[Rfam]
Shown here is a 369-nucleotide RNA sequence from Streptococcus dysgalactiae, a member of the family "Bacterial RNase P class B". About the family: Ribonuclease P (RNase P) is a ubiquitous endoribonuclease, found in archaea, bacteria and eukarya as well as chloroplasts and mitochondria. Its best characterised activity is the generation of mature 5'-ends of tRNAs by cleaving the 5'-leader elements of precursor-tRNAs. Cellular RNase Ps are ribonucleoproteins. RNA from bacterial RNase Ps retains its catalytic activity in the absence of the protein subunit, i.e. it is a ribozyme. Clan: RNaseP clan. For this family Rfam cites "Ribonuclease P: unity and diversity in a tRNA processing ribozyme" (Frank and Pace, Annu Rev Biochem, 1998).
RNA sequence: AUUUUUGGAUAAUCGCGUAGUAUUCCAAUACUAUGAGGAAAGUCCAUGCUAGCACUGGCUGUGAUGCCAGUAGUGAUUGUGCUAGGCGAACAAAUAAGCCUAGGGAUGUGCUUAUACAUUACGGCGAAGAAAAUGGCUAAGUCCUUGGAUAUGCCAAAGUACUUCUGAAAGUGCCACAGUGACGAAGUUUUUAUGGAAACGUAAAAAAUGGAACGCGGUAAACCCCUCAAGCUAGCAACCCAAACUUUGGUAGGGGCAUGGGAUAGUUGGAAACGAACAAGCUAUCCUGACUGUUAUUAGACAGUAGACAGAUGAUUAUCGAAAGAGAUGAGACCUAGUCAUUUCUGGAACAAAACAUGGCUUAUAGAA
Numbered sequence: 001a002u003u004u005u006u007g008g009a010u011a012a013u014c015g016c017g018u019a020g021u022a023u024u025c026c027a028a029u030a031c032u033a034u035g036a037g038g039a040a041a042g043u044c045c046a047u048g049c050u051a052g053c054a055c056u057g058g059c060u061g062u063g064a065u066g067c068c069a070g071u072a073g074u075g076a077u078u079g080u081g082c083u084a085g086g087c088g089a090a091c092a093a094a095u096a097a098g099c100c101u102a103g104g105g106a107u108g109u110g111c112u113u114a115u116a117c118a119u120u121a122c123g124g125c126g127a128a129g130a131a132a133a134u135g136g137c138u139a140a141g142u143c144c145u146u147g148g149a150u151a152u153g154c155c156a157a158a159g160u161a162c163u164u165c166u167g168a169a170a171g172u173g174c175c176a177c178a179g180u181g182a183c184g185a186a187g188u189u190u191u192u193a194u195g196g197a198a199a200c201g202u203a204a205a206a207a208a209u210g211g212a213a214c215g216c217g218g219u220a221a222a223c224c225c226c227u228c229a230a231g232c233u234a235g236c237a238a239c240c241c242a243a244a245c246u247u248u249g250g251u252a253g254g255g256g257c258a259u260g261g262g263a264u265a266g267u268u269g270g271a272a273a274c275g276a277a278c279a280a281g282c283u284a285u286c287c288u289g290a291c292u293g294u295u296a297u298u299a300g301a302c303a304g305u306a307g308a309c310a311g312a313u314g315a316u317u318a319u320c321g322a323a324a325g326a327g328a329u330g331a332g333a334c335c336u337a338g339u340c341a342u343u344u345c346u347g348g349a350a351c352a353a354a355a356c357a358u359g360g361c362u363u364a365u366a367g368a369a
Base pairs, nucleotide, nucleotide: 004369005368006367007365008320009319010318011317012316013315014314016035017034018033019032020031021030040363041362042361044360045359046358047357048356049235050234051233052232053231054071055070056069057068058067059066077230078229079228081226082103083102084101085100086099087098104122105120106119107118108117109116110115123225124224126165127164128163129162134156135155136154137153141150142149143148171223172222173219174218175217188207189206190205191204192203193202194201195200239255240254241253259289260288261287262286263285264284265283290305291304292303293302294301295300324346325345326344327343328342329341330340331339